[Rfam]
RNA sequence: GGCCCAACUUUGAAGUAGAGUAGAUUAGUAGUAUCAGCUGACCCUAAUAAACUACUCUACAUCGAGGUUGGGCCA
Numbered sequence: 001g002g003c004c005c006a007a008c009u010u011u012g013a014a015g016u017a018g019a020g021u022a023g024a025u026u027a028g029u030a031g032u033a034u035c036a037g038c039u040g041a042c043c044c045u046a047a048u049a050a051a052c053u054a055c056u057c058u059a060c061a062u063c064g065a066g067g068u069u070g071g072g073c074c075a
Stems, first nucleotide, its partner, number of pairs: 001074009011064003015060009025050003029046002034041002
Description
A member of the RNA family "mir-5928 microRNA precursor family" from Haemonchus placei, 75 nucleotides long. The organism belongs to Haemonchus, within Eukaryota. It scores 74 bits against the family's covariance model.